[Rfam]
RNA: Bacterial RNase P class B
RNA sequence: GAUCCUGAGUAAUUGCGGUCGUAGUAUUACGGCUGAGGAAAGUCCAUUCUCGCACAGGCUGAGAUGCUUGUAGUGUUCGUGCUCGGUGAAAAAAUAAGCCGGGGAACUCUGAAUAAGAGUUACGGCGGACUUUGACGCUAAGGCUUUGCUAUGCUGAGAAGUCCCUAAGGUGCCACAGUGACGAAUGAUAUUGGAAACAGUAUCAAUGGAACGCGGUAAACCCCUCGAGCGGGAAACCCAAACUUUGGUAGGGGAGCUUCACACACGGAAAUUGAACCAAGUGUGGGGGAGAGAUGUUCGCAUUUCUCAGAUAGAUGAUUACUACUUGCAGUUUUGUUCCUGGAAAUUUGCAAGCACAAAACAUGGCUUAUAGGG
Numbered sequence: 001g002a003u004c005c006u007g008a009g010u011a012a013u014u015g016c017g018g019u020c021g022u023a024g025u026a027u028u029a030c031g032g033c034u035g036a037g038g039a040a041a042g043u044c045c046a047u048u049c050u051c052g053c054a055c056a057g058g059c060u061g062a063g064a065u066g067c068u069u070g071u072a073g074u075g076u077u078c079g080u081g082c083u084c085g086g087u088g089a090a091a092a093a094a095u096a097a098g099c100c101g102g103g104g105a106a107c108u109c110u111g112a113a114u115a116a117g118a119g120u121u122a123c124g125g126c127g128g129a130c131u132u133u134g135a136c137g138c139u140a141a142g143g144c145u146u147u148g149c150u151a152u153g154c155u156g157a158g159a160a161g162u163c164c165c166u167a168a169g170g171u172g173c174c175a176c177a178g179u180g181a182c183g184a185a186u187g188a189u190a191u192u193g194g195a196a197a198c199a200g201u202a203u204c205a206a207u208g209g210a211a212c213g214c215g216g217u218a219a220a221c222c223c224c225u226c227g228a229g230c231g232g233g234a235a236a237c238c239c240a241a242a243c244u245u246u247g248g249u250a251g252g253g254g255a256g257c258u259u260c261a262c263a264c265a266c267g268g269a270a271a272u273u274g275a276a277c278c279a280a281g282u283g284u285g286g287g288g289g290a291g292a293g294a295u296g297u298u299c300g301c302a303u304u305u306c307u308c309a310g311a312u313a314g315a316u317g318a319u320u321a322c323u324a325c326u327u328g329c330a331g332u333u334u335u336g337u338u339c340c341u342g343g344a345a346a347u348u349u350g351c352a353a354g355c356a357c358a359a360a361a362c363a364u365g366g367c368u369u370a371u372a373g374g375g
Stems, first nucleotide, its partner, number of pairs: 004375003007371001008323007016035006040369003044366004049233005054071006077228003081224001082103006104123001105121006124223002127164004135155001137154002142150003170221002172217003186205008237253003257288007289308008325354007333346003